[Rfam]
RNA sequence: UAUAUUUGCACGCUGAUAGAAAGUCUAUCAAAUUACAUAAUAAUUAUUGAAAUAAUAUUGGCAUG
Numbered sequence: 001u002a003u004a005u006u007u008g009c010a011c012g013c014u015g016a017u018a019g020a021a022a023g024u025c026u027a028u029c030a031a032a033u034u035a036c037a038u039a040a041u042a043a044u045u046a047u048u049g050a051a052a053u054a055a056u057a058u059u060g061g062c063a064u065g
Base pairs, nucleotide, nucleotide: 014030015029016028017027018026019025
S15-Flavobacteria ribosomal protein leader: a 65-nucleotide sequence. The sequence is in the family's curated seed alignment. By type it is a cis-regulatory leader.